[Rfam]
Background
A member of the RNA family "Archaeal large subunit ribosomal RNA" from Methanothrix harundinacea, 356 nucleotides of a longer RNA. Clan: LSU clan. The family's consensus secondary structure is taken from published work. A search with the family's covariance model found it, with a score of 2936 bits.
RNA sequence: AGUAGUAGCAGCAAAGUCGGGUGAAAAUCCCGAUCGCCGAAUGGGCUAGGUUUCCUCGGCAAUGUUCGUCAGCCGAGGGUCAGUCGGUCCUAAGAUAUGCCGCAACUCGAGCAUGUCAAAAGGGAAACAGGUUAAUAUUCCUGUACCAUUCAACAAUAAAACUGACGCUUCUGGGUAGGCUGAGCACCUUUGCCAGGGUGUUCAAGCGCCGAAACCUGCGGAGAGCCGUAAUGGCGAGAAGCAGGCGAAUGCGUGAUGACGUAAGUCAGCUCGCCCCAGGAGCCCGUGAAAAGGGAGUUGAAUGGCCGUACCGAGAACCAACACAGGUGUCCCAAGCUGAGAAGGCUAAGGCGUGU
Numbered sequence: 001a002g003u004a005g006u007a008g009c010a011g012c013a014a015a016g017u018c019g020g021g022u023g024a025a026a027a028u029c030c031c032g033a034u035c036g037c038c039g040a041a042u043g044g045g046c047u048a049g050g051u052u053u054c055c056u057c058g059g060c061a062a063u064g065u066u067c068g069u070c071a072g073c074c075g076a077g078g079g080u081c082a083g084u085c086g087g088u089c090c091u092a093a094g095a096u097a098u099g100c101c102g103c104a105a106c107u108c109g110a111g112c113a114u115g116u117c118a119a120a121a122g123g124g125a126a127a128c129a130g131g132u133u134a135a136u137a138u139u140c141c142u143g144u145a146c147c148a149u150u151c152a153a154c155a156a157u158a159a160a161a162c163u164g165a166c167g168c169u170u171c172u173g174g175g176u177a178g179g180c181u182g183a184g185c186a187c188c189u190u191u192g193c194c195a196g197g198g199u200g201u202u203c204a205a206g207c208g209c210c211g212a213a214a215c216c217u218g219c220g221g222a223g224a225g226c227c228g229u230a231a232u233g234g235c236g237a238g239a240a241g242c243a244g245g246c247g248a249a250u251g252c253g254u255g256a257u258g259a260c261g262u263a264a265g266u267c268a269g270c271u272c273g274c275c276c277c278a279g280g281a282g283c284c285c286g287u288g289a290a291a292a293g294g295g296a297g298u299u300g301a302a303u304g305g306c307c308g309u310a311c312c313g314a315g316a317a318c319c320a321a322c323a324c325a326g327g328u329g330u331c332c333c334a335a336g337c338u339g340a341g342a343a344g345g346c347u348a349a350g351g352c353g354u355g356u
Stems, first nucleotide, its partner, number of pairs: 016034006035353004043332004049312002054078006063071002085308003089123002094117006101109002127144005147304008162294002167283009178271005183202006206254004215245005225235003260265001318327002335347003